[Rfam]
RNA sequence: UUUUUAGUAUAAGUGUGUCUCAUUAAAUAUUUGGGGUAUACUUAUACUAAAA
Numbered sequence: 001u002u003u004u005u006a007g008u009a010u011a012a013g014u015g016u017g018u019c020u021c022a023u024u025a026a027a028u029a030u031u032u033g034g035g036g037u038a039u040a041c042u043u044a045u046a047c048u049a050a051a052a
Stems, first nucleotide, its partner, number of pairs: 006048007014040003018036004022031001
Notes:
Shown here is a 52-nucleotide RNA sequence from Rousettus aegyptiacus, a member of the family "mir-1302 microRNA precursor family". For this family Rfam cites "Application of massively parallel sequencing to microRNA profiling and discovery in human embryonic stem cells" (Morin et al., Genome Res, 2008). The organism belongs to Rousettus, within Eukaryota.